[Rfam]
RNA sequence: CAGCUUGUUUUCUAGGGUUCCGCGGCGGCCAUGCACCUGCCGGACUGGUCCGAGAGAAAACGCACGGCACGGCCGUGUACACGGAGGGACAAAAGCCCGGGAGGA
Numbered sequence: 001c002a003g004c005u006u007g008u009u010u011u012c013u014a015g016g017g018u019u020c021c022g023c024g025g026c027g028g029c030c031a032u033g034c035a036c037c038u039g040c041c042g043g044a045c046u047g048g049u050c051c052g053a054g055a056g057a058a059a060a061c062g063c064a065c066g067g068c069a070c071g072g073c074c075g076u077g078u079a080c081a082c083g084g085a086g087g088g089a090c091a092a093a094a095g096c097c098c099g100g101g102a103g104g105a
Base pairs, nucleotide, nucleotide: 007061008060009059010058011057012056015051016050020048021047022045023042024041025040026039027038028037062078063077064076065075066074067073068072080100082103086098087097088096
The record is a 105-nucleotide sequence from Paenibacillus mucilaginosus, which matches "Guanidine-I riboswitch aptamer" in Rfam. This family represents a conserved RNA structure found upstream of the ykkC and yxkD genes in Bacillus subtilis and related genes in other bacteria. The function of this family is unclear although it has been suggested that it may function to switch on efflux pumps and detoxification systems in response to harmful environmental molecules. It scores 89 bits against the family's covariance model.